RNA sequence: AAAGCAGGCCGGCUUGUCGCUUUUCCGUUUGUGCGGAGAAGAGGAAAGUCCGGGCAACGCAGAGCACCAUAUUUCCUAACGGGAAGCUGUUCGUGAGGGCAGAGUAGCGUAACAGAAAAUAACCGCCACGACUCGUUUGUGGUAAGGGUGAAAAGGUGGGGUAAGAGCCCACCGGCGCUGAUGGCAACAUCGGCGGCCGUACGUCUUAUGGGUUGUAAGGCCAUGUAUACCGGCGCUUGAGGGUUGCUCGCCCAAGCCGGAGGGUAGGCCGCAAGAGUUGAUUGGUGACAAUCUUCCCAGAUAAAUGACAGGCAUCCCGUUUCGGCGGGAUACAGAACCCGGCUUACAGGCCUGCUUUUUUA
Numbered sequence: 001a002a003a004g005c006a007g008g009c010c011g012g013c014u015u016g017u018c019g020c021u022u023u024u025c026c027g028u029u030u031g032u033g034c035g036g037a038g039a040a041g042a043g044g045a046a047a048g049u050c051c052g053g054g055c056a057a058c059g060c061a062g063a064g065c066a067c068c069a070u071a072u073u074u075c076c077u078a079a080c081g082g083g084a085a086g087c088u089g090u091u092c093g094u095g096a097g098g099g100c101a102g103a104g105u106a107g108c109g110u111a112a113c114a115g116a117a118a119a120u121a122a123c124c125g126c127c128a129c130g131a132c133u134c135g136u137u138u139g140u141g142g143u144a145a146g147g148g149u150g151a152a153a154a155g156g157u158g159g160g161g162u163a164a165g166a167g168c169c170c171a172c173c174g175g176c177g178c179u180g181a182u183g184g185c186a187a188c189a190u191c192g193g194c195g196g197c198c199g200u201a202c203g204u205c206u207u208a209u210g211g212g213u214u215g216u217a218a219g220g221c222c223a224u225g226u227a228u229a230c231c232g233g234c235g236c237u238u239g240a241g242g243g244u245u246g247c248u249c250g251c252c253c254a255a256g257c258c259g260g261a262g263g264g265u266a267g268g269c270c271g272c273a274a275g276a277g278u279u280g281a282u283u284g285g286u287g288a289c290a291a292u293c294u295u296c297c298c299a300g301a302u303a304a305a306u307g308a309c310a311g312g313c314a315u316c317c318c319g320u321u322u323c324g325g326c327g328g329g330a331u332a333c334a335g336a337a338c339c340c341g342g343c344u345u346a347c348a349g350g351c352c353u354g355c356u357u358u359u360u361u362a
Base pairs, nucleotide, nucleotide: 001358002357003356004355005354006353007352008351009350010349011347012313013312014311015310016309017308018307020041021040022039023038024037025036026035027034028033046345047344048343050342051341052340053339054338055215056214057213058212062249063248064247065246067211068210069209070208071207072086073085074084075083076082087102089100090099091098092097103206104205107204108203109202110201111200123147124146125143126142127141128140129139130138131137155173156172157171158170159169160168175197176195177194178193179192180191181190182189183188219270220269221268222267230260231259232258233257234256241253242252243251244250277296280293281292282291283290284289
RNA: Bacterial RNase P class A